[Rfam]
RNA sequence: UGCCGCCCAAUGUUGAAAGUUCGUAUAUGUUCGGGAAAUGGCCCGAAUGUUUCUACCCGGAAACCGUAAUUUCCGGACUACGAGCAAGAUGAACCGACAA
Numbered sequence: 001u002g003c004c005g006c007c008c009a010a011u012g013u014u015g016a017a018a019g020u021u022c023g024u025a026u027a028u029g030u031u032c033g034g035g036a037a038a039u040g041g042c043c044c045g046a047a048u049g050u051u052u053c054u055a056c057c058c059g060g061a062a063a064c065c066g067u068a069a070u071u072u073c074c075g076g077a078c079u080a081c082g083a084g085c086a087a088g089a090u091g092a093a094c095c096g097a098c099a100a
Base pairs, nucleotide, nucleotide: 019085020084021083022082023081024080025079029048030047031046032045033044034043035042057076058075059074060073061072062071063070
This 100-nucleotide sequence from Paenibacillus prosopidis belongs to the Rfam family "Purine riboswitch aptamer". NCBI's taxonomy places the organism under Bacteria, Bacillati, Bacilli, Caryophanales, Paenibacillus.